[Rfam]
RNA sequence: GUGAGUGCAGUGAUGAUACAAAUAUUGUGGACUAGAGUUUCUGAUCAGGGCCUUCUCCCUGAAGUUGAAGACUAACCCUUGGCUGUCUGAGCACAAC
Numbered sequence: 001g002u003g004a005g006u007g008c009a010g011u012g013a014u015g016a017u018a019c020a021a022a023u024a025u026u027g028u029g030g031a032c033u034a035g036a037g038u039u040u041c042u043g044a045u046c047a048g049g050g051c052c053u054u055c056u057c058c059c060u061g062a063a064g065u066u067g068a069a070g071a072c073u074a075a076c077c078c079u080u081g082g083c084u085g086u087c088u089g090a091g092c093a094c095a096a097c
Stems, first nucleotide, its partner, number of pairs: 001097002005094004038070004045063001046061005
Rfam assigns this 97-nucleotide sequence from Turnera subulata to the family "Small nucleolar RNA Z157/R69/R10". The family's RNA type in Rfam is C/D-box small nucleolar RNA. Pairs were carried over by alignment from the consensus structure, which was predicted with PFOLD. Rfam links the family to the GO terms nucleolus and RNA processing. The organism belongs to Turnera, within Eukaryota.